[Rfam]
Nucleotides: 167
Stems, first nucleotide, its partner, number of pairs: 020048008057087005066076004088106006110157003114153003124142005130137002
Number, partner (000 for none) and nucleotide at each position: 001000c002000a003000u004000u005000a006000u007000a008000a009000u010000a011000a012000a013000g014000c015000g016000c017000c018000u019000g020048g021047a022046c023045u024044a025043a026042a027041c028000u029000a030000u031000g032000g033000a034000c035000g036000a037000a038000a039000g040000g041027g042026u043025u044024u045023a046022g047021u048020u049000g050000a051000c052000g053000a054000g055000g056000a057087g058086g059085a060084g061083g062000u063000u064000u065000a066076u067075c068074g069073a070000u071000u072000u073069u074068c075067g076066g077000c078000g079000g080000a081000u082000a083061c084060c085059u086058c087057c088106c089105g090104g091103c092102u093101g094000a095000u096000c097000u098000g099000c100000a101093c102092a103091g104090c105089c106088g107000u108000a109000a110157u111156u112155c113000c114153u115152u116151c117000c118000u119000c120000a121000a122000a123000a124142c125141a126140g127139c128138g129000g130137a131136g132000g133000c134000a135000a136131c137130u138128c139127g140126c141125u142124g143000c144000a145000c146000a147000a148000a149000a150000g151116g152115a153114a154000c155112g156111a157110a158000g159000u160000g161000c162000a163000c164000a165000c166000a167000a